[Rfam]
Record summary:
The family of this 163-nucleotide sequence from Monosiga brevicollis is "U1 spliceosomal RNA". A search with the family's covariance model found it, with a score of 93 bits. For this family Rfam cites "Crystal structure of human spliceosomal U1 snRNP at 5.5 A resolution" (Pomeranz Krummel et al., Nature, 2009). U1 is a small nuclear RNA (snRNA) component of the spliceosome (involved in pre-mRNA splicing). Its 5' end forms complementary base pairs with the 5' splice junction, thus defining the 5' donor site of an intron. There are significant differences in sequence and secondary structure between metazoan and yeast U1 snRNAs, the latter being much longer (568 nucleotides as compared to 164 nucleotides in human).

RNA sequence: AUACUUACCUGCAGGUGCAGUUCGGUGGAUCACGUAGCACUGACUGUCUCUCUGAGAGUUGCUUCAUUGCACGCGGAAGUUCAGCUUGACGGGAGUGCCGGGGCCUCGUGUCCCGCGCGACCUGGUCAUUUUUGGUUUGUGGACUGCGUUCGCGCAGUCCAUG
Numbered sequence: 001a002u003a004c005u006u007a008c009c010u011g012c013a014g015g016u017g018c019a020g021u022u023c024g025g026u027g028g029a030u031c032a033c034g035u036a037g038c039a040c041u042g043a044c045u046g047u048c049u050c051u052c053u054g055a056g057a058g059u060u061g062c063u064u065c066a067u068u069g070c071a072c073g074c075g076g077a078a079g080u081u082c083a084g085c086u087u088g089a090c091g092g093g094a095g096u097g098c099c100g101g102g103g104c105c106u107c108g109u110g111u112c113c114c115g116c117g118c119g120a121c122c123u124g125g126u127c128a129u130u131u132u133u134g135g136u137u138u139g140u141g142g143a144c145u146g147c148g149u150u151c152g153c154g155c156a157g158u159c160c161a162u163g
Stems, first nucleotide, its partner, number of pairs: 012124004017047005023042005049094004054090001056087003060083002063079001064077002096119003099115003103111002139162005145156004